[Rfam]
RNA sequence: AAGAGUUUUUAGAUUUCGGUAUCGCUAUAUCUCAUCGUCAUUCUCACUUCUCGACUUUGCCUCGGCUAAUUUAGCCGGGGCUUUU
Numbered sequence: 001a002a003g004a005g006u007u008u009u010u011a012g013a014u015u016u017c018g019g020u021a022u023c024g025c026u027a028u029a030u031c032u033c034a035u036c037g038u039c040a041u042u043c044u045c046a047c048u049u050c051u052c053g054a055c056u057u058u059g060c061c062u063c064g065g066c067u068a069a070u071u072u073a074g075c076c077g078g079g080g081c082u083u084u085u
Stems, first nucleotide, its partner, number of pairs: 059081008
RNA: Photosynthesis regulatory RNA1
Organism: Nostoc sp. ATCC 43529